[Rfam]
RNA: 6S / SsrS RNA
Organism: Parahaemophilus pittmaniae
RNA sequence: GAUUUCCUGGGGUGUUCGUGAAAGGGUUAUGUCCCUGAGCCGAUACUUAAAAUCUUAUAAAUCGGUUUCCUGUCAUUGGUGUGUAGGCUUUACCUCUGUUUACAGGGGCUUAAAGAAACCUAAAAAUGACCUUAUCGAUUUCCUUGAACCGUCGGGUUCAAGGACUACCACCCAUAGCGGCACUCCGGGACCCUU
Numbered sequence: 001g002a003u004u005u006c007c008u009g010g011g012g013u014g015u016u017c018g019u020g021a022a023a024g025g026g027u028u029a030u031g032u033c034c035c036u037g038a039g040c041c042g043a044u045a046c047u048u049a050a051a052a053u054c055u056u057a058u059a060a061a062u063c064g065g066u067u068u069c070c071u072g073u074c075a076u077u078g079g080u081g082u083g084u085a086g087g088c089u090u091u092a093c094c095u096c097u098g099u100u101u102a103c104a105g106g107g108g109c110u111u112a113a114a115g116a117a118a119c120c121u122a123a124a125a126a127u128g129a130c131c132u133u134a135u136c137g138a139u140u141u142c143c144u145u146g147a148a149c150c151g152u153c154g155g156g157u158u159c160a161a162g163g164a165c166u167a168c169c170a171c172c173c174a175u176a177g178c179g180g181c182a183c184u185c186c187g188g189g190a191c192c193c194u195u
Stems, first nucleotide, its partner, number of pairs: 005190011017179003031165004036160006059141002062138005072130006083119002088115005
Dot-bracket structure: ....(((((((((((.(((...........((((.((((((.................((.(((((.....((((((.....((...(((((..................)))))..)).....))))))...))))).)).............)))))).))))...........)))))))))))))).....